Shown here is a 73-nucleotide sequence from Medicago truncatula, a member of the family "MIR5272 microRNA precursor family".
RNA sequence: UUGAAUGUGAAUUGAUUAUGUUAGGAUACACUUUAACAUAAGUGAUUCUUAUUUGUUGAUGUUAUUUGGAUAA
Numbered sequence: 001u002u003g004a005a006u007g008u009g010a011a012u013u014g015a016u017u018a019u020g021u022u023a024g025g026a027u028a029c030a031c032u033u034u035a036a037c038a039u040a041a042g043u044g045a046u047u048c049u050u051a052u053u054u055g056u057u058g059a060u061g062u063u064a065u066u067u068g069g070a071u072a073a
Stems, first nucleotide, its partner, number of pairs: 011060006020052002024048004029044005
The source organism's lineage runs through Eukaryota, Embryophyta, Tracheophyta, Pentapetalae and Medicago. Pairs were carried over by alignment from the consensus structure, which was predicted with RNAalifold.